[Rfam]
RNA sequence: AUGCAUCUGUUUGACAAGCCUGAAGCAGUUACUGUCUGCCAAGGUUUCCACUACAAAUUCAAGAAAAAAAUACCCUUGUGCUUUCUGUCUGUGGCAGCCCAGACUGAAUGCAGGAAUACAGCA
Numbered sequence: 001a002u003g004c005a006u007c008u009g010u011u012u013g014a015c016a017a018g019c020c021u022g023a024a025g026c027a028g029u030u031a032c033u034g035u036c037u038g039c040c041a042a043g044g045u046u047u048c049c050a051c052u053a054c055a056a057a058u059u060c061a062a063g064a065a066a067a068a069a070a071u072a073c074c075c076u077u078g079u080g081c082u083u084u085c086u087g088u089c090u091g092u093g094g095c096a097g098c099c100c101a102g103a104c105u106g107a108a109u110g111c112a113g114g115a116a117u118a119c120a121g122c123a
Stems, first nucleotide, its partner, number of pairs: 002061002005058002008055002012050002016047005025039004074114003081106001084103004089097003
RNA: Small nucleolar RNA SNORA31